[Rfam]
RNA sequence: AUCGUUCAUCUUCUCUUUUUGAAGAAGACGGAAGUAGGGAUAUAUUCCUGAAGGAACGCGCC
Numbered sequence: 001a002u003c004g005u006u007c008a009u010c011u012u013c014u015c016u017u018u019u020u021g022a023a024g025a026a027g028a029c030g031g032a033a034g035u036a037g038g039g040a041u042a043u044a045u046u047c048c049u050g051a052a053g054g055a056a057c058g059c060g061c062c
Stems, first nucleotide, its partner, number of pairs: 003058005009028005031059001037049003
Shown here is a 62-nucleotide RNA sequence from Synechocystis sp. PCC 6803, a member of the family "Glutamine riboswitch aptamer (glnA leader)". The sequence is in the family's curated seed alignment. Gene Ontology term of the family: glutamine binding. The base pairs follow the family's consensus structure, which is taken from published work. The literature on the family includes a 2015 paper in Cell Rep by Ren et al., "Structural and Dynamic Basis for Low-Affinity, High-Selectivity Binding of L-Glutamine by the Glutamine Riboswitch".